[Rfam]
RNA: Selenocysteine insertion sequence 1
Organism: Sinocyclocheilus grahami
RNA sequence: UUUACUUCAUGAAGAUGCUCCUGUAAACCUGCUUGUCUGUGGGGAGCAUCUGAUGCCGUGCAGA
Numbered sequence: 001u002u003u004a005c006u007u008c009a010u011g012a013a014g015a016u017g018c019u020c021c022u023g024u025a026a027a028c029c030u031g032c033u034u035g036u037c038u039g040u041g042g043g044g045a046g047c048a049u050c051u052g053a054u055g056c057c058g059u060g061c062a063g064a
Base pairs, nucleotide, nucleotide: 001064002063003062005060014050015049016048017047018046019045020044021043022042029039031037